[Rfam]
skipping-rope RNA: a 141-nucleotide sequence. By type it is a small RNA.
RNA sequence: GGUAUUUGAGGUCGGAAAUGGCUCCCGACACUCCCUUGUAUGAGGACGGAAGAAGCGGCCGUCGCCCUAGUUGGAGAUGCGUGAGUGCUGACACGCUGCAAGGGAACCUGAGAUGCAGGAUACGCCGCCUUGCCAAAUAUC
Numbered sequence: 001g002g003u004a005u006u007u008g009a010g011g012u013c014g015g016a017a018a019u020g021g022c023u024c025c026c027g028a029c030a031c032u033c034c035c036u037u038g039u040a041u042g043a044g045g046a047c048g049g050a051a052g053a054a055g056c057g058g059c060c061g062u063c064g065c066c067c068u069a070g071u072u073g074g075a076g077a078u079g080c081g082u083g084a085g086u087g088c089u090g091a092c093a094c095g096c097u098g099c100a101a102g103g104g105a106a107c108c109u110g111a112g113a114u115g116c117a118g119g120a121u122a123c124g125c126c127g128c129c130u131u132g133c134c135a136a137a138u139a140u141c
Stems, first nucleotide, its partner, number of pairs: 001141008011029005019127004031110001032105009115133005